let-7 microRNA precursor family: an 81-nucleotide RNA sequence from Hymenochirus boettgeri. About the family: This family represents the microRNAs (miRNA) let-7 and mir-98. let-7 was identified from a study of developmental timing in C. elegans, and was later shown to be part of a much larger class of non-coding RNAs termed miRNAs. The organism belongs to Hymenochirus, within Eukaryota. It scores 77 bits against the family's covariance model.
RNA sequence: UCAGGAUGAGGUAGUAGAUUGUAUAGUUUUGGGGUCACACCCGAUCUGGGAGAUAACUAUACAGUUUACUGUCUUUCCUGU
Numbered sequence: 001u002c003a004g005g006a007u008g009a010g011g012u013a014g015u016a017g018a019u020u021g022u023a024u025a026g027u028u029u030u031g032g033g034g035u036c037a038c039a040c041c042c043g044a045u046c047u048g049g050g051a052g053a054u055a056a057c058u059a060u061a062c063a064g065u066u067u068a069c070u071g072u073c074u075u076u077c078c079u080g081u
Base pairs, nucleotide, nucleotide: 002080003079004078005077006076008075009074010073011072012071013070014069015068016067017066018065019064020063021062022061023060024059025058026057027056032042033041034040035039045052